[Rfam]
Notes
STAXI RNA: a 159-nucleotide RNA sequence from Erwinia tracheiphila.
RNA sequence: CGUUGCAAUACGCAACAUGCCAAUGUCCCGGCAAUCUGAGAGGGACGCCUUCGGGUGAUUGCAUGCCAAAGUUGUCAAAACCUGAGAGACGACGCCUUCGGGCGGUAAACCCGUCAGCCUUUGAAAAUGGGGAUCGCGUUAACUGCGAUAAAGGAUUUA
Numbered sequence: 001c002g003u004u005g006c007a008a009u010a011c012g013c014a015a016c017a018u019g020c021c022a023a024u025g026u027c028c029c030g031g032c033a034a035u036c037u038g039a040g041a042g043g044g045a046c047g048c049c050u051u052c053g054g055g056u057g058a059u060u061g062c063a064u065g066c067c068a069a070a071g072u073u074g075u076c077a078a079a080a081c082c083u084g085a086g087a088g089a090c091g092a093c094g095c096c097u098u099c100g101g102g103c104g105g106u107a108a109a110c111c112c113g114u115c116a117g118c119c120u121u122u123g124a125a126a127a128u129g130g131g132g133a134u135c136g137c138g139u140u141a142a143c144u145g146c147g148a149u150a151a152a153g154g155a156u157u158u159a
Base pairs, nucleotide, nucleotide: 002016003015004014005013006012025046026045027044028043029042031062032061033060034059035058036057047056048055049054071093072092073091074090075089080106081105082104094103095102096101110131111130112129113128114127116156118154119153120152121151133149134148135147136146137145138144

Rfam 15.1 lists 130 matches to the family in 68 species.